[Rfam]
RNA: Bacterial large subunit ribosomal RNA, nucleotides 1751 to 2113
RNA sequence: UGAGAGAACCCUGGUUAAGGAACUCGGCAAAAUGACACCGUAACUUAGGGAGAAGGUGUGCCUCUGGUACGUGAAAGGACUUGCUCCUGGAGCGGAAAGAGGCCUCAGAGAAAUGGCGGUAGCGACUGUUUACUAAAAACAUAGGACUCUGCUAAGUCGCAAGACGAUGUAUAGGGUCUGACGCCUGCCCGGUGCCGGAAGGUUAAGGGGAGAUGUUAUCCUUCGGGAGAAGCAUUGAACCGAAGCCCCGGUAAACGGCGGCCGUAACUAUAACGGUCCUAAGGUAGCGAAAUUCCUUGUCGGGUAAGUUCCGACCUGCACGAAUGGCGUAACGACUUCCGCACUGUCUCAACCAGGGACUCA
Numbered sequence: 001u002g003a004g005a006g007a008a009c010c011c012u013g014g015u016u017a018a019g020g021a022a023c024u025c026g027g028c029a030a031a032a033u034g035a036c037a038c039c040g041u042a043a044c045u046u047a048g049g050g051a052g053a054a055g056g057u058g059u060g061c062c063u064c065u066g067g068u069a070c071g072u073g074a075a076a077g078g079a080c081u082u083g084c085u086c087c088u089g090g091a092g093c094g095g096a097a098a099g100a101g102g103c104c105u106c107a108g109a110g111a112a113a114u115g116g117c118g119g120u121a122g123c124g125a126c127u128g129u130u131u132a133c134u135a136a137a138a139a140c141a142u143a144g145g146a147c148u149c150u151g152c153u154a155a156g157u158c159g160c161a162a163g164a165c166g167a168u169g170u171a172u173a174g175g176g177u178c179u180g181a182c183g184c185c186u187g188c189c190c191g192g193u194g195c196c197g198g199a200a201g202g203u204u205a206a207g208g209g210g211a212g213a214u215g216u217u218a219u220c221c222u223u224c225g226g227g228a229g230a231a232g233c234a235u236u237g238a239a240c241c242g243a244a245g246c247c248c249c250g251g252u253a254a255a256c257g258g259c260g261g262c263c264g265u266a267a268c269u270a271u272a273a274c275g276g277u278c279c280u281a282a283g284g285u286a287g288c289g290a291a292a293u294u295c296c297u298u299g300u301c302g303g304g305u306a307a308g309u310u311c312c313g314a315c316c317u318g319c320a321c322g323a324a325u326g327g328c329g330u331a332a333c334g335a336c337u338u339c340c341g342c343a344c345u346g347u348c349u350c351a352a353c354c355a356g357g358g359a360c361u362c363a
Stems, first nucleotide, its partner, number of pairs: 001363004009358008018349003035059005044049001060103006082094005104108001116342004121337002123334002127141003144179008152169001156165003182329004187259003192256002194252005201247003207241002212236005219228002260278006279283001289316001299315006